RNA sequence: UUGCCGGUGGAAGUCCGGUCCGGGUAGUUGCCAGGAAGCCCGGUGGCAGGCUGGCGGCCUCGCCUGGAAACGGGCGGGGUCGAAGCCCGGCAUCGAAAACCCUGUUAGAGGGAAGCGAAGAUGCGGUCCGUAACAUAA
Numbered sequence: 001u002u003g004c005c006g007g008u009g010g011a012a013g014u015c016c017g018g019u020c021c022g023g024g025u026a027g028u029u030g031c032c033a034g035g036a037a038g039c040c041c042g043g044u045g046g047c048a049g050g051c052u053g054g055c056g057g058c059c060u061c062g063c064c065u066g067g068a069a070a071c072g073g074g075c076g077g078g079g080u081c082g083a084a085g086c087c088c089g090g091c092a093u094c095g096a097a098a099a100c101c102c103u104g105u106u107a108g109a110g111g112g113a114a115g116c117g118a119a120g121a122u123g124c125g126g127u128c129c130g131u132a133a134c135a136u137a138a
Stems, first nucleotide, its partner, number of pairs: 020043005050091005055082006064073001066071001100112004115131003
The family of this 138-nucleotide RNA from Actinomadura macrotermitis is "Group II catalytic intron D1-D4-4". Group II introns are found in rRNA, tRNA and mRNA of organelles in fungi, plants and protists, and also in mRNA in bacteria. Pairs were carried over by alignment from the consensus structure. It scores 102 bits against the family's covariance model.